The record is a 72-nucleotide RNA, which matches "RAGATH-18 RNA" in Rfam. It is annotated as a small RNA. The base pairs follow the family's consensus structure, which is taken from published work.
Nucleotides: 072
Base pairs, nucleotide, nucleotide: 001070002069003068004067005066009059010058011057012056013055022054023053024052030047031046032045035043036042
Number, partner (000 for none) and nucleotide at each position: 001070c002069c003068u004067u005066u006000g007000g008000a009059g010058u011057g012056a013055u014000a015000u016000a017000u018000c019000a020000a021000a022054c023053u024052a025000a026000a027000g028000u029000a030047g031046u032045c033000u034000a035043u036042g037000u038000u039000u040000a041000u042036c043035a044000a045032g046031a047030c048000a049000a050000a051000a052024u053023a054022g055013g056012u057011c058010a059009c060000g061000u062000u063000g064000a065000a066005a067004a068003a069002g070001g071000a072000a